[Rfam]
RNA: ALIL pseudoknot
RNA sequence: GGCUUUCUUCGCGGCGGAGCUCGACCGCCCACCGAGGUACUGACUGCUUUCAUCGAGACCCACCGUGAGACGUUCGGGGUCGAGCCGAUCUGCCGGGUGCUUGCUGAGCACGGGCUGCAGAUCGCCCCG
Numbered sequence: 001g002g003c004u005u006u007c008u009u010c011g012c013g014g015c016g017g018a019g020c021u022c023g024a025c026c027g028c029c030c031a032c033c034g035a036g037g038u039a040c041u042g043a044c045u046g047c048u049u050u051c052a053u054c055g056a057g058a059c060c061c062a063c064c065g066u067g068a069g070a071c072g073u074u075c076g077g078g079g080u081c082g083a084g085c086c087g088a089u090c091u092g093c094c095g096g097g098u099g100c101u102u103g104c105u106g107a108g109c110a111c112g113g114g115c116u117g118c119a120g121a122u123c124g125c126c127c128c129g
Stems, first nucleotide, its partner, number of pairs: 013029005075129005086124002089121005095115001